[Rfam]
RNA sequence: CCCAAGCCCGGGCUCUUUCCACUGAGCCACGCUAUGCCAUUUUAAAAAAAUCAGUAUCAAUCAGUAGUUUCGUGGCUCAGUGGAAAGAGCACGGGCUUUGGA
Numbered sequence: 001c002c003c004a005a006g007c008c009c010g011g012g013c014u015c016u017u018u019c020c021a022c023u024g025a026g027c028c029a030c031g032c033u034a035u036g037c038c039a040u041u042u043u044a045a046a047a048a049a050a051u052c053a054g055u056a057u058c059a060a061u062c063a064g065u066a067g068u069u070u071c072g073u074g075g076c077u078c079a080g081u082g083g084a085a086a087g088a089g090c091a092c093g094g095g096c097u098u099u100g101g102a
Stems, first nucleotide, its partner, number of pairs: 002101002005097006012090008022080009
The record is a 102-nucleotide RNA sequence from Ornithorhynchus anatinus, which matches "mir-130 microRNA precursor family" in Rfam. The match comes from Rfam's covariance-model search (44 bits).